[Rfam]
RNA sequence: CAGUGGGAGAUAAACCCACCAAGGCAAAAGCCAGAACCUUGUAGCUUGGUCAGCAAGGGGGAAGGAAACUGAACUCUUGAAGCCUGACGACAAAGCCAUCGGAAGGAUGGUGAGGGAGUAUCCGGGCCGUAACGAAA
Numbered sequence: 001c002a003g004u005g006g007g008a009g010a011u012a013a014a015c016c017c018a019c020c021a022a023g024g025c026a027a028a029a030g031c032c033a034g035a036a037c038c039u040u041g042u043a044g045c046u047u048g049g050u051c052a053g054c055a056a057g058g059g060g061g062a063a064g065g066a067a068a069c070u071g072a073a074c075u076c077u078u079g080a081a082g083c084c085u086g087a088c089g090a091c092a093a094a095g096c097c098a099u100c101g102g103a104a105g106g107a108u109g110g111u112g113a114g115g116g117a118g119u120a121u122c123c124g125g126g127c128c129g130u131a132a133c134g135a136a137a
Base pairs, nucleotide, nucleotide: 020041021040022039023038024037049088050087051086052085053084054079055078056077057076058075059074063070064069095111096110097109098108099107100106114130116128

Notes: A member of the RNA family "Group II catalytic intron D1-D4-4" from Kosmotoga olearia, 137 nucleotides long. Rfam's curators write: Group II introns are found in rRNA, tRNA and mRNA of organelles in fungi, plants and protists, and also in mRNA in bacteria. NCBI's taxonomy places the organism under Bacteria, Thermotogati, Thermotogota, Kosmotogaceae, Kosmotoga olearia. For this family Rfam cites "The ins and outs of group II introns" (Bonen and Vogel, Trends Genet, 2001).